[Rfam]
RNA: RNase MRP
RNA sequence: ACGCCGAACGAAGGACCGCCAUCGCAGCUCACGCACAGAGAGGUUCCACGCCUCUCAUCCUCCAGCUGUGGGGAAAGUCCCCGGAGAUGCAGACCACGUCCCCGUCCAGAUGGAAAGCCCCCCCAUGUAGGCUUGGGGGGUCGGGCGGCGGACGGCUAGGGUGCCCUGUCCGUCUCCUCGAAGGCCUCGCUCGCACUCGAGGAGGCGGCUCGCCCCAGCCAGGUCUGUUGCCAGCGGUGUGCCCCUGCGCGCGGCGCGAAGAGACGAGCGCCGCCGCCUCGCCCGGGGUGCGCUGCUGGCGAGAUGUUGCUCAUAGACACAGUUAUGCGGUCGUGGACGCGCUUCCCCUCCUCUUUUUGGGGGUGGGAGCCCACGAACACAAUGGGGCUUACUCUCGCUCGGCG
Numbered sequence: 001a002c003g004c005c006g007a008a009c010g011a012a013g014g015a016c017c018g019c020c021a022u023c024g025c026a027g028c029u030c031a032c033g034c035a036c037a038g039a040g041a042g043g044u045u046c047c048a049c050g051c052c053u054c055u056c057a058u059c060c061u062c063c064a065g066c067u068g069u070g071g072g073g074a075a076a077g078u079c080c081c082c083g084g085a086g087a088u089g090c091a092g093a094c095c096a097c098g099u100c101c102c103c104g105u106c107c108a109g110a111u112g113g114a115a116a117g118c119c120c121c122c123c124c125a126u127g128u129a130g131g132c133u134u135g136g137g138g139g140g141u142c143g144g145g146c147g148g149c150g151g152a153c154g155g156c157u158a159g160g161g162u163g164c165c166c167u168g169u170c171c172g173u174c175u176c177c178u179c180g181a182a183g184g185c186c187u188c189g190c191u192c193g194c195a196c197u198c199g200a201g202g203a204g205g206c207g208g209c210u211c212g213c214c215c216c217a218g219c220c221a222g223g224u225c226u227g228u229u230g231c232c233a234g235c236g237g238u239g240u241g242c243c244c245c246u247g248c249g250c251g252c253g254g255c256g257c258g259a260a261g262a263g264a265c266g267a268g269c270g271c272c273g274c275c276g277c278c279u280c281g282c283c284c285g286g287g288g289u290g291c292g293c294u295g296c297u298g299g300c301g302a303g304a305u306g307u308u309g310c311u312c313a314u315a316g317a318c319a320c321a322g323u324u325a326u327g328c329g330g331u332c333g334u335g336g337a338c339g340c341g342c343u344u345c346c347c348c349u350c351c352u353c354u355u356u357u358u359g360g361g362g363g364u365g366g367g368a369g370c371c372c373a374c375g376a377a378c379a380c381a382a383u384g385g386g387g388c389u390u391a392c393u394c395u396c397g398c399u400c401g402g403c404g
Stems, first nucleotide, its partner, number of pairs: 002404006009397003014332006022071007038056007075390003079387004224304003230300006239293004252285003333374004338369001